[Rfam]
RNA sequence: CCUGUGGAGUGUUAGAACAAACGAGAGUAGCGAGGAAGUGGCAAAAUCGGACACGUAGAAACAGGAA
Numbered sequence: 001c002c003u004g005u006g007g008a009g010u011g012u013u014a015g016a017a018c019a020a021a022c023g024a025g026a027g028u029a030g031c032g033a034g035g036a037a038g039u040g041g042c043a044a045a046a047u048c049g050g051a052c053a054c055g056u057a058g059a060a061a062c063a064g065g066a067a
Stems, first nucleotide, its partner, number of pairs: 001065005009054005022049003030042002
RNA: RAGATH-18 RNA
Organism: Enterococcus mundtii